[Rfam]
RNA sequence: CUUAUUGGGACUUUGGUGAUUUUAGCUGUAUGUUGAAUGCAUUCCUAACCACAUAUAGCUUUAUCACCAAAAACCUAAUGUG
Numbered sequence: 001c002u003u004a005u006u007g008g009g010a011c012u013u014u015g016g017u018g019a020u021u022u023u024a025g026c027u028g029u030a031u032g033u034u035g036a037a038u039g040c041a042u043u044c045c046u047a048a049c050c051a052c053a054u055a056u057a058g059c060u061u062u063a064u065c066a067c068c069a070a071a072a073a074c075c076u077a078a079u080g081u082g
Stems, first nucleotide, its partner, number of pairs: 001082001003080003007076003012071009024060004029055005
Rfam assigns this 82-nucleotide RNA sequence from Anopheles gambiae to the family "mir-9/mir-79 microRNA precursor family".
NCBI's taxonomy places the organism under Eukaryota, Mandibulata, Pancrustacea, Diptera, gambiae species complex.
On this family, see Lagos-Quintana et al., Science 2001: "Identification of novel genes coding for small expressed RNAs".